The record is a 230-nucleotide RNA sequence from Azorhizobium caulinodans, which matches "permuted transfer-messenger RNA" in Rfam.
RNA sequence: GGCGAUAAACGGUUGUCGGAAUAAACCUUUCGGACCCGGGGGCAGUACCCGGCGCCUCCACCAGAGCCCACACCCACGCGAUCCGCGUCGGGUGGGUUGGUCUCCGGCGGGGGCGAAACAGGAUCGACGAGGGCGUAAAGGGCUUUCUUUCGCUCGGCAUGGUUCCGCCGUCAUCGGGCCGACCUAUAGUUGCGAAUGACAACUAUGCUCCGGUUGCCGUUGCCGCGUGA
Numbered sequence: 001g002g003c004g005a006u007a008a009a010c011g012g013u014u015g016u017c018g019g020a021a022u023a024a025a026c027c028u029u030u031c032g033g034a035c036c037c038g039g040g041g042g043c044a045g046u047a048c049c050c051g052g053c054g055c056c057u058c059c060a061c062c063a064g065a066g067c068c069c070a071c072a073c074c075c076a077c078g079c080g081a082u083c084c085g086c087g088u089c090g091g092g093u094g095g096g097u098u099g100g101u102c103u104c105c106g107g108c109g110g111g112g113g114c115g116a117a118a119c120a121g122g123a124u125c126g127a128c129g130a131g132g133g134c135g136u137a138a139a140g141g142g143c144u145u146u147c148u149u150u151c152g153c154u155c156g157g158c159a160u161g162g163u164u165c166c167g168c169c170g171u172c173a174u175c176g177g178g179c180c181g182a183c184c185u186a187u188a189g190u191u192g193c194g195a196a197u198g199a200c201a202a203c204u205a206u207g208c209u210c211c212g213g214u215u216g217c218c219g220u221u222g223c224c225g226c227g228u229g230a
Stems, first nucleotide, its partner, number of pairs: 001154005015143003026133003030130003036052005053115007155170004
Rfam links the family to the GO term RNA catabolic process. The match comes from Rfam's covariance-model search (138 bits).